SAM-I/IV (S-adenosyl methionine) riboswitch aptamer: a 95-nucleotide RNA. Pairs were carried over by alignment from the consensus structure, which is taken from published work. The family is grouped with related families in Rfam's "SAM clan".

RNA sequence: ACCUAGCAUCAAGAGAAGAGUUGUACUCUCUCCAACCUGCCCAAUCCGGCAAGGUGGAAAAAAUGAUGUGGCAUUCAGCAAAUAUAGGAGAUCGC
Numbered sequence: 001a002c003c004u005a006g007c008a009u010c011a012a013g014a015g016a017a018g019a020g021u022u023g024u025a026c027u028c029u030c031u032c033c034a035a036c037c038u039g040c041c042c043a044a045u046c047c048g049g050c051a052a053g054g055u056g057g058a059a060a061a062a063a064u065g066a067u068g069u070g071g072c073a074u075u076c077a078g079c080a081a082a083u084a085u086a087g088g089a090g091a092u093c094g095c
Base pairs, nucleotide, nucleotide: 006069007068008067009066010065015030017029018028019027020026021025031058032057033056036054037053038052039050040049041048045089046088047087071079072078